RNA sequence: UUAGAGACUAGAGUCUCAUCUUGACACACAUGAUUGUCUUGGUGUGCUUGAGUCCUCUUAGAGUGAAGACUGGUCCUAUUCACUGAUUGGCUUUUUGUAGGCUGGUCAGCCACAUGGGCAGUUACAAAG
Numbered sequence: 001u002u003a004g005a006g007a008c009u010a011g012a013g014u015c016u017c018a019u020c021u022u023g024a025c026a027c028a029c030a031u032g033a034u035u036g037u038c039u040u041g042g043u044g045u046g047c048u049u050g051a052g053u054c055c056u057c058u059u060a061g062a063g064u065g066a067a068g069a070c071u072g073g074u075c076c077u078a079u080u081c082a083c084u085g086a087u088u089g090g091c092u093u094u095u096u097g098u099a100g101g102c103u104g105g106u107c108a109g110c111c112a113c114a115u116g117g118g119c120a121g122u123u124a125c126a127a128a129g
Stems, first nucleotide, its partner, number of pairs: 003058004007053003012048002015046001017044004023038004070121003074117002083109004088104006
This 129-nucleotide RNA from Mastacembelus armatus belongs to the Rfam family "Small nucleolar RNA SNORA3/SNORA45 family". The members of this family belong to the H/ACA class of snoRNAs which are thought to guide the sites of modification of uridines to pseudouridines. This family includes mouse snoMBI-28 and human homologues ACA3 (SNORA3) and ACA3-2 (SNORA45). Both ACA3 and ACA3-2 share the same host gene. MBI-28, ACA3 and ACA3-2 are all predicted to guide the pseudouridylation of residues in 28S rRNA. The base pairs follow the family's consensus structure, which was predicted with RNAalifold. NCBI's taxonomy places the organism under Eukaryota, Euteleostomi, Actinopterygii, Percomorphaceae, Mastacembelus. For this family Rfam cites "A novel experimental approach for systematic identification of box H/ACA snoRNAs from eukaryotes" (Gu et al., Nucleic Acids Res, 2005).